[Rfam]
RNA sequence: AGGCUUAUGAUGAUAAUUUUUUUAUAUCUUAGCGGAUUUCAGUGAGAUAAAAUCAAUGAUCUGAAUGUUACACACACUGAAGCCU
Numbered sequence: 001a002g003g004c005u006u007a008u009g010a011u012g013a014u015a016a017u018u019u020u021u022u023u024a025u026a027u028c029u030u031a032g033c034g035g036a037u038u039u040c041a042g043u044g045a046g047a048u049a050a051a052a053u054c055a056a057u058g059a060u061c062u063g064a065a066u067g068u069u070a071c072a073c074a075c076a077c078u079g080a081a082g083c084c085u
Stems, first nucleotide, its partner, number of pairs: 001085005